[Rfam]
RNA sequence: GCCUGCAUUCGUAAGUGAUCACGGGCUGCCCAUGUCCUGGUCAUUGGUAGUGCAGGCAGAGAAAAUGUGGGAAAGGUUGUCGUGUUUGGAGGGUCCACAUCUUCACCUUCCUGUCCUGGGAACUUUCCUACA
Numbered sequence: 001g002c003c004u005g006c007a008u009u010c011g012u013a014a015g016u017g018a019u020c021a022c023g024g025g026c027u028g029c030c031c032a033u034g035u036c037c038u039g040g041u042c043a044u045u046g047g048u049a050g051u052g053c054a055g056g057c058a059g060a061g062a063a064a065a066u067g068u069g070g071g072a073a074a075g076g077u078u079g080u081c082g083u084g085u086u087u088g089g090a091g092g093g094u095c096c097a098c099a100u101c102u103u104c105a106c107c108u109u110c111c112u113g114u115c116c117u118g119g120g121a122a123c124u125u126u127c128c129u130a131c132a
Stems, first nucleotide, its partner, number of pairs: 001057009014045008023037004067129001069128005084115001086113001088111001089109004
RNA: Small nucleolar RNA SNORA71
Organism: Chlorocebus sabaeus